[Rfam]
Shown here is a 129-nucleotide RNA from Acipenser ruthenus, a member of the family "Small nucleolar RNA SNORA63". A reference for the family is Mishra and Eliceiri (1997), "Three small nucleolar RNAs that are involved in ribosomal RNA precursor processing", Proc Natl Acad Sci U S A. E3 belongs to the H/ACA class of snoRNAs and is involved in the processing of eukaryotic pre-rRNA and has regions of complementarity to 18S rRNA. E3 is encoded in introns in the gene for protein synthesis initiation factor 4AII. Lineage of the source: Eukaryota > Craniata > Actinopteri > Acipenseridae > Acipenser.
RNA sequence: AUGCAGGUUAAGUUACAAUAUGGCUGCGAAGUGCUCUAUUGUCGUUCCCCCUGCGGAAAUUAACUCGUUUUUAUACUAUCCCUGGCUGUCUUGUUCCAACGACUGACAGGGACGCUUGAUCACGAACAC
Numbered sequence: 001a002u003g004c005a006g007g008u009u010a011a012g013u014u015a016c017a018a019u020a021u022g023g024c025u026g027c028g029a030a031g032u033g034c035u036c037u038a039u040u041g042u043c044g045u046u047c048c049c050c051c052u053g054c055g056g057a058a059a060u061u062a063a064c065u066c067g068u069u070u071u072u073a074u075a076c077u078a079u080c081c082c083u084g085g086c087u088g089u090c091u092u093g094u095u096c097c098a099a100c101g102a103c104u105g106a107c108a109g110g111g112a113c114g115c116u117u118g119a120u121c122a123c124g125a126a127c128a129c
Base pairs, nucleotide, nucleotide: 003054004053005052006051007050015042016041017040018039019038020037022035023034024033081110082109083108084107086105088103089102
Pairs were carried over by alignment from the consensus structure, which was predicted with PFOLD.